[Rfam]
RNA: mir-219 microRNA precursor family
RNA sequence: CCAGGUCAUGAUUGUCCAAACGCAAUUCUUGUUGAAUGAAUAGUCAAGAAAUGUGUGUGGACAUCAACUCUUGG
Numbered sequence: 001c002c003a004g005g006u007c008a009u010g011a012u013u014g015u016c017c018a019a020a021c022g023c024a025a026u027u028c029u030u031g032u033u034g035a036a037u038g039a040a041u042a043g044u045c046a047a048g049a050a051a052u053g054u055g056u057g058u059g060g061a062c063a064u065c066a067a068c069u070c071u072u073g074g
Stems, first nucleotide, its partner, number of pairs: 002073004009066004014062005021055004026050006